[Rfam]
RNA: U12 minor spliceosomal RNA
Organism: Orycteropus afer
RNA sequence: AUGCCUUAAACUUAUGAAUAAGGAAAAUAAUGAUUGGGGUUGAUACCUGGAUAUUCACUGCUAAUGUAAGAAAAAAAAUUAAGUGGGUAAAUAUUGACCCUAAGUUGACCACCUGCUUUGCAGGAUGCCUGGAAAUUGCAAUUUGCCUG
Numbered sequence: 001a002u003g004c005c006u007u008a009a010a011c012u013u014a015u016g017a018a019u020a021a022g023g024a025a026a027a028u029a030a031u032g033a034u035u036g037g038g039g040u041u042g043a044u045a046c047c048u049g050g051a052u053a054u055u056c057a058c059u060g061c062u063a064a065u066g067u068a069a070g071a072a073a074a075a076a077a078a079u080u081a082a083g084u085g086g087g088u089a090a091a092u093a094u095u096g097a098c099c100c101u102a103a104g105u106u107g108a109c110c111a112c113c114u115g116c117u118u119u120g121c122a123g124g125a126u127g128c129c130u131g132g133a134a135a136u137u138g139c140a141a142u143u144u145g146c147c148u149g
Stems, first nucleotide, its partner, number of pairs: 004023005033052003037048003054070002057067002084149005091144001093142004101132001103130002106127002112120001